A member of the RNA family "Guanidine-I riboswitch aptamer" from Marinobacter vulgaris, 107 nucleotides long. Taxonomically the source falls in Marinobacter (Bacteria, Pseudomonadota, Gammaproteobacteria, Marinobacteraceae). Rfam describes the family as follows. This family represents a conserved RNA structure found upstream of the ykkC and yxkD genes in Bacillus subtilis and related genes in other bacteria. The function of this family is unclear although it has been suggested that it may function to switch on efflux pumps and detoxification systems in response to harmful environmental molecules. Rfam 15.1 lists 1,509 matches to the family in 1,281 species. Pairs were carried over by alignment from the consensus structure.

RNA sequence: CCAAUGGUCAACUAGGGUUCCGGUCUGCCACCGAUCGAUGCAGACGACUGGUCCGAGAGUUGACGACCUUUUCCAAGGUUACACGGCGGGACAAAAGCCCGGGAGGA
Numbered sequence: 001c002c003a004a005u006g007g008u009c010a011a012c013u014a015g016g017g018u019u020c021c022g023g024u025c026u027g028c029c030a031c032c033g034a035u036c037g038a039u040g041c042a043g044a045c046g047a048c049u050g051g052u053c054c055g056a057g058a059g060u061u062g063a064c065g066a067c068c069u070u071u072u073c074c075a076a077g078g079u080u081a082c083a084c085g086g087c088g089g090g091a092c093a094a095a096a097g098c099c100c101g102g103g104a105g106g107a
Stems, first nucleotide, its partner, number of pairs: 007064006015054002020051002022048001023045006065080006082102001084105001088100003